[Rfam]
RNA sequence: CCCAGGAGUAGAAGCGUUCAACCGUCCCGCCCGGGACGGCAGGAAAUUGCUCCCGAC
Numbered sequence: 001c002c003c004a005g006g007a008g009u010a011g012a013a014g015c016g017u018u019c020a021a022c023c024g025u026c027c028c029g030c031c032c033g034g035g036a037c038g039g040c041a042g043g044a045a046a047u048u049g050c051u052c053c054c055g056a057c
Stems, first nucleotide, its partner, number of pairs: 005053006015042001018044002022039006
RNA: Xanthine riboswitch aptamer (NMT1 RNA)
Organism: Rhizobacter gummiphilus